RNA sequence: GUGUCAUGGUCAUUGCUGACUGUUCAUAUAAACCUUGCAAAUGCUUUGCAGCUUAUGCGGGGAUUAUAUAACGGUUAACAGAGACCUUUGACAU
Numbered sequence: 001g002u003g004u005c006a007u008g009g010u011c012a013u014u015g016c017u018g019a020c021u022g023u024u025c026a027u028a029u030a031a032a033c034c035u036u037g038c039a040a041a042u043g044c045u046u047u048g049c050a051g052c053u054u055a056u057g058c059g060g061g062g063a064u065u066a067u068a069u070a071a072c073g074g075u076u077a078a079c080a081g082a083g084a085c086c087u088u089u090g091a092c093a094u
Stems, first nucleotide, its partner, number of pairs: 001094006008086004013081003017077008026069006033062007043052001
Rfam assigns this 94-nucleotide RNA sequence from Medicago truncatula to the family "MIR2587 microRNA precursor family".
Rfam 15.1 lists 242 matches to the family in 3 species.
Rfam links the family to the GO terms miRNA-mediated post-transcriptional gene silencing and RISC complex.
The family's consensus secondary structure was predicted with RNAalifold.
Lineage of the source: Eukaryota > Streptophytina > Euphyllophyta > Pentapetalae > Medicago.